[Rfam]
Shown here is a 380-nucleotide sequence from Celeribacter baekdonensis, a member of the family "Alphaproteobacteria transfer-messenger RNA". Gene Ontology term of the family: RNA catabolic process. Bacterial tmRNA, also known as 10Sa RNA or SsrA, is named for its dual tRNA and mRNA-like properties. Its role is to liberate the mRNA from a stalled ribosome. To accomplish this part of the tmRNA is used as a reading frame that ends in a translation stop signal. The broken mRNA is replaced in the ribosome by the tmRNA and translation of the tmRNA leads to addition of a proteolysis tag to the incomplete protein enabling recognition by a protease. Recently a number of permuted tmRNA genes have been found encoded in two parts. tmRNAs have been identified in eubacteria and some chloroplasts but are absent from archaeal and eukaryote nuclear genomes.
RNA sequence: CCUCUUGAACCCGGCCCCGGAACCGCUUAGGUAUGAGGUGUUCGGGCAACCGGACUAUGGACAUAAACGCGCUCGUAAUACGCGGAUCGGACCCGGGGGCGGUACCCGGCGUCUCCACCAUACACCCAUCGGUUUGGACCUUCAUUUGAGGCCUUGGCGAUUUGGAUCAUGGGGACGAAAUAGGAUCGACGGACGUCUAAAGGGGUUUGCUUUGUUUCGGUGAGUUACCACCGUUAUCGGUACACUAAAGCUAGUUGCAAAUGACAACAAAGCUCCGAUGGCUCUCGCAGCGUAAGCUGUGCGAAAAAUCGAAAACUAAGUCCUUAGGUUUAGCGACUUAAGGCGGGGUUCGCAGGUACCUGGCAACAGAAACCUGCACU
Numbered sequence: 001c002c003u004c005u006u007g008a009a010c011c012c013g014g015c016c017c018c019g020g021a022a023c024c025g026c027u028u029a030g031g032u033a034u035g036a037g038g039u040g041u042u043c044g045g046g047c048a049a050c051c052g053g054a055c056u057a058u059g060g061a062c063a064u065a066a067a068c069g070c071g072c073u074c075g076u077a078a079u080a081c082g083c084g085g086a087u088c089g090g091a092c093c094c095g096g097g098g099g100c101g102g103u104a105c106c107c108g109g110c111g112u113c114u115c116c117a118c119c120a121u122a123c124a125c126c127c128a129u130c131g132g133u134u135u136g137g138a139c140c141u142u143c144a145u146u147u148g149a150g151g152c153c154u155u156g157g158c159g160a161u162u163u164g165g166a167u168c169a170u171g172g173g174g175a176c177g178a179a180a181u182a183g184g185a186u187c188g189a190c191g192g193a194c195g196u197c198u199a200a201a202g203g204g205g206u207u208u209g210c211u212u213u214g215u216u217u218c219g220g221u222g223a224g225u226u227a228c229c230a231c232c233g234u235u236a237u238c239g240g241u242a243c244a245c246u247a248a249a250g251c252u253a254g255u256u257g258c259a260a261a262u263g264a265c266a267a268c269a270a271a272g273c274u275c276c277g278a279u280g281g282c283u284c285u286c287g288c289a290g291c292g293u294a295a296g297c298u299g300u301g302c303g304a305a306a307a308a309u310c311g312a313a314a315a316c317u318a319a320g321u322c323c324u325u326a327g328g329u330u331u332a333g334c335g336a337c338u339u340a341a342g343g344c345g346g347g348g349u350u351c352g353c354a355g356g357u358a359c360c361u362g363g364c365a366a367c368a369g370a371a372a373c374c375u376g377c378a379c380u
Stems, first nucleotide, its partner, number of pairs: 040055005059217005069210002071206004083195002087192003093109005110177007218233004224243002227241003346361004352377006